[Rfam]
RNA sequence: GGUAGUAGCAAAUAUUCAAAUGAGAACUUUGAAGACUGAAGUGGAGAAAGGUUCCAUGUCAACAGUAAUUGAACAUGGGUUAGUCGAUCCUAAGAGAUAGGGAAACUCCGUUUCAAAUGGUGACGUUUUCAUCACACUUAUCGAAAGGGAAGUAGGUUAAUAUUCCUACACCUGGAUGUGGAUAAUUAAUACGGUAACGUUAAAUGAACUUGGUAACAUCAGUGAAAAUCCUGGAAAGAGUUGUCUUUUCUUUUUAACAAUUGUAAAAAACCAUGAAAUCGAUUUAACCGGAGAUAUGGUAUUUUGAUUGGAAGAGCUUGACAUUUUACGUCGGGUCCGGUGCAUUUUCAAUGAUCCUGGAAAAACCAAGGGAAAGAUUUAUUUCACACCUGGUCGUACUCAUAACCGCAACAGGUCUCCAAGGUGAACAGCCUCUAGUUGA
Numbered sequence: 001g002g003u004a005g006u007a008g009c010a011a012a013u014a015u016u017c018a019a020a021u022g023a024g025a026a027c028u029u030u031g032a033a034g035a036c037u038g039a040a041g042u043g044g045a046g047a048a049a050g051g052u053u054c055c056a057u058g059u060c061a062a063c064a065g066u067a068a069u070u071g072a073a074c075a076u077g078g079g080u081u082a083g084u085c086g087a088u089c090c091u092a093a094g095a096g097a098u099a100g101g102g103a104a105a106c107u108c109c110g111u112u113u114c115a116a117a118u119g120g121u122g123a124c125g126u127u128u129u130c131a132u133c134a135c136a137c138u139u140a141u142c143g144a145a146a147g148g149g150a151a152g153u154a155g156g157u158u159a160a161u162a163u164u165c166c167u168a169c170a171c172c173u174g175g176a177u178g179u180g181g182a183u184a185a186u187u188a189a190u191a192c193g194g195u196a197a198c199g200u201u202a203a204a205u206g207a208a209c210u211u212g213g214u215a216a217c218a219u220c221a222g223u224g225a226a227a228a229u230c231c232u233g234g235a236a237a238g239a240g241u242u243g244u245c246u247u248u249u250c251u252u253u254u255u256a257a258c259a260a261u262u263g264u265a266a267a268a269a270a271c272c273a274u275g276a277a278a279u280c281g282a283u284u285u286a287a288c289c290g291g292a293g294a295u296a297u298g299g300u301a302u303u304u305u306g307a308u309u310g311g312a313a314g315a316g317c318u319u320g321a322c323a324u325u326u327u328a329c330g331u332c333g334g335g336u337c338c339g340g341u342g343c344a345u346u347u348u349c350a351a352u353g354a355u356c357c358u359g360g361a362a363a364a365a366c367c368a369a370g371g372g373a374a375a376g377a378u379u380u381a382u383u384u385c386a387c388a389c390c391u392g393g394u395c396g397u398a399c400u401c402a403u404a405a406c407c408g409c410a411a412c413a414g415g416u417c418u419c420c421a422a423g424g425u426g427a428a429c430a431g432c433c434u435c436u437a438g439u440u441g442a
Base pairs, nucleotide, nucleotide: 015033016032017031018030019029020028034440035439036438037437043420044419045418046417049400050399054078055077056076057075058074059073063071064070085396086395087394089148090147094142095141096112097111098110100109101108102107119133120132121131152169153168154167155166156165172392174390175389177388178387179386180385181384182382183381190202191200192199193198209370210369211368212367213366214365218355219354220353221352223350224349225348226347227346228345229344231340232339233338234254235253236252237251238250239249258310259309260308261307262306270300271299272298273297274296275295279291280290281289317335318334319333320332321331322330406415407414422434423433424432425431
RNA: Eukaryotic large subunit ribosomal RNA, nucleotides 1624 to 2065
Organism: Funneliformis mosseae